[Rfam]
RNA sequence: CGAGUAAGUCAGACAGUCGCAUGCAUUUAGCAUGAGGAAAGUCCGAGCUCCACAGGGCAGGGUGCUGGGUAAUACCCAGUGGGGGCGACCCUAAGGAUAGUGCAACAGAAAUAUACCGCCUGCUUUUGCAGGUAAGGGUGGAAAGGUGAGGUAAGAGCUCACCAGCAGCUAGGCGACUAGUUGGCUCUGUAAACCCCAUCUGGAGCAAGACCAAGUUAGGGACAUGAAAAGGUGGUGGCCCGUCACCGUCCCGUUUGGUAGGUCGCUAGAGCCUAUUGGCAACAAUAGGCGUAGAUAGAUGACUGUCAAAUACAGAACUCGGCUUAUAGACUUACUCGCUUA
Numbered sequence: 001c002g003a004g005u006a007a008g009u010c011a012g013a014c015a016g017u018c019g020c021a022u023g024c025a026u027u028u029a030g031c032a033u034g035a036g037g038a039a040a041g042u043c044c045g046a047g048c049u050c051c052a053c054a055g056g057g058c059a060g061g062g063u064g065c066u067g068g069g070u071a072a073u074a075c076c077c078a079g080u081g082g083g084g085g086c087g088a089c090c091c092u093a094a095g096g097a098u099a100g101u102g103c104a105a106c107a108g109a110a111a112u113a114u115a116c117c118g119c120c121u122g123c124u125u126u127u128g129c130a131g132g133u134a135a136g137g138g139u140g141g142a143a144a145g146g147u148g149a150g151g152u153a154a155g156a157g158c159u160c161a162c163c164a165g166c167a168g169c170u171a172g173g174c175g176a177c178u179a180g181u182u183g184g185c186u187c188u189g190u191a192a193a194c195c196c197c198a199u200c201u202g203g204a205g206c207a208a209g210a211c212c213a214a215g216u217u218a219g220g221g222a223c224a225u226g227a228a229a230a231g232g233u234g235g236u237g238g239c240c241c242g243u244c245a246c247c248g249u250c251c252c253g254u255u256u257g258g259u260a261g262g263u264c265g266c267u268a269g270a271g272c273c274u275a276u277u278g279g280c281a282a283c284a285a286u287a288g289g290c291g292u293a294g295a296u297a298g299a300u301g302a303c304u305g306u307c308a309a310a311u312a313c314a315g316a317a318c319u320c321g322g323c324u325u326a327u328a329g330a331c332u333u334a335c336u337c338g339c340u341u342a
Stems, first nucleotide, its partner, number of pairs: 001338010011327001012307007020034005039325003043322005048205004055241004060201005065079005080094001081092004095196002100194002102190003116137002118133006145163006165185001166183007209264004219254001221252001232246005271290008
Shown here is a 342-nucleotide RNA sequence from Caloranaerobacter sp. TR13, a member of the family "Bacterial RNase P class A". Rfam classes the family as a ribozyme. NCBI's taxonomy places the organism under Bacteria, Bacillati, Tissierellia, Thermohalobacteraceae, Caloranaerobacter. Gene Ontology terms of the family: dimeric ribonuclease P complex, tRNA processing and ribonuclease P activity. The family's consensus secondary structure is taken from published work.